[Rfam]
RNA sequence: GGAGUCGGCCAGACAGUCGCUGCCCGCGUCGUCGACACGGGGAGAGGAAAGUCCGGGCUCCAUAGGGCAAGGCGCCAGGUAAUGCCUGGGGGGCGCAAGCCUACGGAAAGUGCCACAGAAAAUAUACCGCCGUGAUCCUUUGGAUCGCGGUAAGGGUGAAAUGGUGCGGUAAGAGCGCACCGCGCUUCCGGUAACGGAAGUGGCAGGGCAAACCCCGCCCGGAGCAAGACCAAAUAGGGGGGCAUUGGAGGUAACUCCUGACGUGCGGCCCGCACGGCUCCCGGGUAGGUCGCUCGAGGCACGCGGCGACGCGUGCCCUAGAUGAAUGGCUGUCCACGACUGAACCCGGCUUAUCGGCCGACUCCCUUU
Numbered sequence: 001g002g003a004g005u006c007g008g009c010c011a012g013a014c015a016g017u018c019g020c021u022g023c024c025c026g027c028g029u030c031g032u033c034g035a036c037a038c039g040g041g042g043a044g045a046g047g048a049a050a051g052u053c054c055g056g057g058c059u060c061c062a063u064a065g066g067g068c069a070a071g072g073c074g075c076c077a078g079g080u081a082a083u084g085c086c087u088g089g090g091g092g093g094c095g096c097a098a099g100c101c102u103a104c105g106g107a108a109a110g111u112g113c114c115a116c117a118g119a120a121a122a123u124a125u126a127c128c129g130c131c132g133u134g135a136u137c138c139u140u141u142g143g144a145u146c147g148c149g150g151u152a153a154g155g156g157u158g159a160a161a162u163g164g165u166g167c168g169g170u171a172a173g174a175g176c177g178c179a180c181c182g183c184g185c186u187u188c189c190g191g192u193a194a195c196g197g198a199a200g201u202g203g204c205a206g207g208g209c210a211a212a213c214c215c216c217g218c219c220c221g222g223a224g225c226a227a228g229a230c231c232a233a234a235u236a237g238g239g240g241g242g243c244a245u246u247g248g249a250g251g252u253a254a255c256u257c258c259u260g261a262c263g264u265g266c267g268g269c270c271c272g273c274a275c276g277g278c279u280c281c282c283g284g285g286u287a288g289g290u291c292g293c294u295c296g297a298g299g300c301a302c303g304c305g306g307c308g309a310c311g312c313g314u315g316c317c318c319u320a321g322a323u324g325a326a327u328g329g330c331u332g333u334c335c336a337c338g339a340c341u342g343a344a345c346c347c348g349g350c351u352u353a354u355c356g357g358c359c360g361a362c363u364c365c366c367u368u369u
Base pairs, nucleotide, nucleotide: 001365002364003363004362005361006360007359008358009357010356011354012334013333014332015331016330017329018328020044021043023041024040025039026038028036049352050351051350053349054348055347056346057345058224059223060222061221065271066270067269068268071219072218073217074216075089076088077087078086079085090104091102092101093100094099105215106214110213111212112209113208114207127155128154129151130150131149132148133147134146135145136144137143163181164180165179166178167177168176182204183202184201185200186199187198188197189196190195228291229290230289231288238282239281240280241279242278243277262276263275264274265273266272298317299316300315301314302313303312304311305310

Record summary
The family of this 369-nucleotide RNA sequence from Methylocaldum marinum is "Bacterial RNase P class A". A search with the family's covariance model found it, with a score of 345 bits. Ribonuclease P (RNase P) is a ubiquitous endoribonuclease, found in archaea, bacteria and eukarya as well as chloroplasts and mitochondria. The family's consensus secondary structure is taken from published work.